[Rfam]
Background:
A member of the RNA family "glmS glucosamine-6-phosphate activated ribozyme aptamer" from Enterococcus florum, 148 nucleotides long.
RNA sequence: CCAAUAAAGAUAGCGCCAGACCUUUUUCAGAGGUGACGAGGAAGAAGCUGAUCGAAGAUUUCGGCGGAUAGCUUCAGGGUGCCACACUCUAUAGGUUAUUUUAAAUCCUUUUUGCAAAAGAAGGGACAAAAAAAUAUCCCCGUGGUAC
Numbered sequence: 001c002c003a004a005u006a007a008a009g010a011u012a013g014c015g016c017c018a019g020a021c022c023u024u025u026u027u028c029a030g031a032g033g034u035g036a037c038g039a040g041g042a043a044g045a046a047g048c049u050g051a052u053c054g055a056a057g058a059u060u061u062c063g064g065c066g067g068a069u070a071g072c073u074u075c076a077g078g079g080u081g082c083c084a085c086a087c088u089c090u091a092u093a094g095g096u097u098a099u100u101u102u103a104a105a106u107c108c109u110u111u112u113u114g115c116a117a118a119a120g121a122a123g124g125g126a127c128a129a130a131a132a133a134a135u136a137u138c139c140c141c142g143u144g145g146u147a148c
Base pairs, nucleotide, nucleotide: 020034021033022032023031024030025029044075045074046073047072048071052064053063054062055061076090077089078088079087080086081085095138097136098135099134100133107124108123109122110121111120112119113118

A reference for the family is Winkler et al. (2004), "Control of gene expression by a natural metabolite-responsive ribozyme", Nature. Rfam classes the family as a riboswitch. Taxonomically the source falls in Enterococcus (Bacteria, Bacillota, Bacilli, Enterococcaceae).